[Rfam]
RNA sequence: GCAAUCUCGGAGAUGAGUCUCAAUAAGGACAUUCUGGGGGAUACGCGUGAUGGCAUUCGGGCUGAGUGAGCAUCACGUAGGGUAGGUAUCGGCAAGUCCUUUUGUCGAUAGACGGGAUACUAAUGUCGUUAAGCGGCAUGUGAAUGGGAAACCCAACA
Numbered sequence: 001g002c003a004a005u006c007u008c009g010g011a012g013a014u015g016a017g018u019c020u021c022a023a024u025a026a027g028g029a030c031a032u033u034c035u036g037g038g039g040g041a042u043a044c045g046c047g048u049g050a051u052g053g054c055a056u057u058c059g060g061g062c063u064g065a066g067u068g069a070g071c072a073u074c075a076c077g078u079a080g081g082g083u084a085g086g087u088a089u090c091g092g093c094a095a096g097u098c099c100u101u102u103u104g105u106c107g108a109u110a111g112a113c114g115g116g117a118u119a120c121u122a123a124u125g126u127c128g129u130u131a132a133g134c135g136g137c138a139u140g141u142g143a144a145u146g147g148g149a150a151a152c153c154c155a156a157c158a
Base pairs, nucleotide, nucleotide: 006038007037008036009035010034011033045078046077047076048075049074050073051072052071054068055067087110088109089108090107091106092105093104094103095102096101124138125137126136127135128134129133
RNA: DABA-DC-AT RNA